[Rfam]
RNA sequence: CGGGCUCCGGCUCACCAUCCCCCCUGAGAGCCGGACCCCAAGACGACCCCCGUCUCCCCGGACGGGGGUCGUCGCCA
Numbered sequence: 001c002g003g004g005c006u007c008c009g010g011c012u013c014a015c016c017a018u019c020c021c022c023c024c025u026g027a028g029a030g031c032c033g034g035a036c037c038c039c040a041a042g043a044c045g046a047c048c049c050c051c052g053u054c055u056c057c058c059c060g061g062a063c064g065g066g067g068g069u070c071g072u073c074g075c076c077a
Stems, first nucleotide, its partner, number of pairs: 002039003006035008042073013